[Rfam]
RNA: transfer-messenger RNA
Organism: Candidatus Borkfalkia ceftriaxoniphila
RNA sequence: GGGGAUGAACUGGUUUCGAUUGCUUGUGGCGUUCAUUGUAAGCAUACCGAAGGAUUCGGCUUCGUUAAAACGAUACCUUUAAAUUUAAACGCAGACAAUAAUCGUCUCGCUUACGCUGCUUAAUUAGCGUAUGUUCUCCGCUUGUUUCCUGUCGGCAGGCGGCGGGCAUCAUUUUCAGACAGGGAACGGCUGUACGCGUUUUGACCGUGACGCGUGCGCUGUAUUCAGCGGUCCACGGCCGCGCGCGUCUGUUUGCCUUUCACGCGCGGCAAGGGUCAAAGACAAACUAAGUAUGUAGAAAGCGUGAAUAAAACAGGUAAGACGCGGGUUCAAAUCCCGCCAUCUCCACCA
Number, nucleotide and partner (000 for none) at each position: 001g347002g346003g345004g344005a343006u342007g341008a000009a000010c000011u000012g000013g000014u000015u000016u000017c000018g000019a000020u320021u319022g318023c317024u316025u315026g314027u313028g000029g000030c000031g309032u308033u307034c306035a305036u304037u000038g303039u302040a000041a000042g000043c295044a294045u293046a292047c291048c064049g063050a062051a061052g060053g076054a000055u000056u073057c072058g071059g000060c052061u051062u050063c049064g048065u000066u000067a000068a000069a000070a000071c058072g057073a056074u000075a000076c053077c000078u000079u000080u000081a000082a000083a000084u000085u000086u000087a000088a000089a000090c000091g000092c000093a000094g000095a000096c000097a000098a000099u000100a000101a000102u000103c000104g000105u000106c000107u000108c000109g000110c000111u000112u131113a130114c129115g128116c127117u126118g125119c000120u000121u000122a000123a000124u000125u118126a117127g116128c115129g114130u113131a112132u168133g167134u166135u165136c164137u000138c162139c161140g160141c159142u000143u157144g156145u155146u154147u185148c184149c183150u182151g000152u000153c000154g146155g145156c144157a143158g000159g141160c140161g139162g138163c000164g136165g135166g134167c133168a132169u000170c000171a000172u000173u000174u000175u000176c000177a000178g000179a000180c000181a000182g150183g149184g148185a147186a000187c000188g000189g220190c000191u218192g217193u216194a215195c214196g213197c212198g000199u000200u000201u000202u000203g234204a000205c000206c231207g000208u000209g000210a000211c000212g197213c196214g195215u194216g193217c192218g191219c000220u189221g000222u000223a000224u000225u000226c000227a000228g000229c000230g000231g206232u000233c000234c203235a000236c000237g000238g270239c269240c268241g267242c266243g265244c264245g263246c000247g261248u000249c000250u000251g287252u286253u285254u284255g000256c000257c281258u000259u000260u000261c247262a000263c245264g244265c243266g242267c241268g240269g239270c238271a000272a000273g000274g000275g000276u000277c000278a000279a000280a000281g257282a000283c000284a254285a253286a252287c251288u000289a000290a000291g047292u046293a045294u044295g043296u000297a000298g000299a000300a000301a000302g039303c038304g036305u035306g034307a033308a032309u031310a000311a000312a000313a027314c026315a025316g024317g023318u022319a021320a020321g000322a000323c000324g340325c339326g338327g337328g336329u000330u000331c000332a000333a000334a000335u000336c328337c327338c326339g325340c324341c007342a006343u005344c004345u003346c002347c001348a000349c000350c000351a000